[Rfam]
RNA sequence: GCAUGGCAAUGGAUUUAUGGUGGGGUCUCUUCAAUGAUCCUCUCAUAGUGUACCCCAUGCUAGAAGAAUAUCAGAUCCGAACCAUUGGUAGGGCCUCUCCAUAAUAGGCCAGACCACUGAAGUGAGCUGUACAGUU
Numbered sequence: 001g002c003a004u005g006g007c008a009a010u011g012g013a014u015u016u017a018u019g020g021u022g023g024g025g026u027c028u029c030u031u032c033a034a035u036g037a038u039c040c041u042c043u044c045a046u047a048g049u050g051u052a053c054c055c056c057a058u059g060c061u062a063g064a065a066g067a068a069u070a071u072c073a074g075a076u077c078c079g080a081a082c083c084a085u086u087g088g089u090a091g092g093g094c095c096u097c098u099c100c101a102u103a104a105u106a107g108g109c110c111a112g113a114c115c116a117c118u119g120a121a122g123u124g125a126g127c128u129g130u131a132c133a134g135u136u
Base pairs, nucleotide, nucleotide: 001060002059003058004057005055006054015048016047017046018045019044020043022041023040024039026036072129073128074127076125077124083119084118088114089113092110093109094108095107096106
Description
A member of the RNA family "Small nucleolar RNA SNORA42/SNORA80 family" from Aquarana catesbeiana, 136 nucleotides long. The members of this family belong to the H/ACA class of snoRNAs that guide the sites of modification of uridines to pseudouridines. Taxonomically the source falls in Aquarana (Eukaryota, Bilateria, Dipnotetrapodomorpha, Ranoidea). It is annotated as an H/ACA-box small nucleolar RNA.